[Rfam]
RNA sequence: GCCCCCAUAGCUCAGUGGAAGAGCACAAGGCCGCGGACCUUGGUUUGCGUGGGUUCGAUUCCUGCUGGGGGUA
Numbered sequence: 001g002c003c004c005c006c007a008u009a010g011c012u013c014a015g016u017g018g019a020a021g022a023g024c025a026c027a028a029g030g031c032c033g034c035g036g037a038c039c040u041u042g043g044u045u046u047g048c049g050u051g052g053g054u055u056c057g058a059u060u061c062c063u064g065c066u067g068g069g070g071g072u073a
Stems, first nucleotide, its partner, number of pairs: 001072007010024004026042005049065005
RNA: tRNA